[Rfam]
RNA sequence: ACAUCUUUUAAAGCGCCUGAACUAAUCGGAGGAGAUUAGUUGACGAGGAGGAGGUUUAUCGAAGUUUCGGCGGAUGCCUCCCGGUUGCUGACGCACAACCGAUAAUUCUUUCCCUAAAUCAAUUGGGUAACCUGUUGGACAAAAGGAAAGAUGUUGCGCAAG
Numbered sequence: 001a002c003a004u005c006u007u008u009u010a011a012a013g014c015g016c017c018u019g020a021a022c023u024a025a026u027c028g029g030a031g032g033a034g035a036u037u038a039g040u041u042g043a044c045g046a047g048g049a050g051g052a053g054g055u056u057u058a059u060c061g062a063a064g065u066u067u068c069g070g071c072g073g074a075u076g077c078c079u080c081c082c083g084g085u086u087g088c089u090g091a092c093g094c095a096c097a098a099c100c101g102a103u104a105a106u107u108c109u110u111u112c113c114c115u116a117a118a119u120c121a122a123u124u125g126g127g128u129a130a131c132c133u134g135u136u137g138g139a140c141a142a143a144a145g146g147a148a149a150g151a152u153g154u155u156g157c158g159c160a161a162g
Stems, first nucleotide, its partner, number of pairs: 020041008050081005059070004082101006107151006120137004125132002

Background
A member of the RNA family "glmS glucosamine-6-phosphate activated ribozyme aptamer" from Bacillus sp. DNRA2, 162 nucleotides long. Rfam's curators write: This entry contains a glucosamine-6-phosphate activated ribozyme that is found in the mRNA for GlmS. GlmS is an enzyme that uses fructose-6-phosphate and glutamine to generate glucosamine-6-phosphate. The organism belongs to Bacillus, within Bacteria. It is annotated as a riboswitch.